[Rfam]
RNA sequence: UAUCCUAUAGGUGAUGAAGUCCGCCAAGAUUUACAGUCUAAACCGCUUAUGCUGAUGACUUCUACAUUAAU
Number, nucleotide and partner (000 for none) at each position: 001u000002a000003u000004c000005c000006u000007a000008u000009a000010g025011g024012u023013g022014a000015u000016g062017a061018a060019g059020u058021c057022c013023g012024c011025c010026a000027a000028g000029a000030u000031u000032u000033a000034c000035a000036g000037u000038c000039u000040a000041a000042a000043c000044c000045g052046c051047u000048u000049a000050u000051g046052c045053u000054g000055a000056u000057g021058a020059c019060u018061u017062c016063u000064a000065c000066a000067u000068u000069a000070a000071u000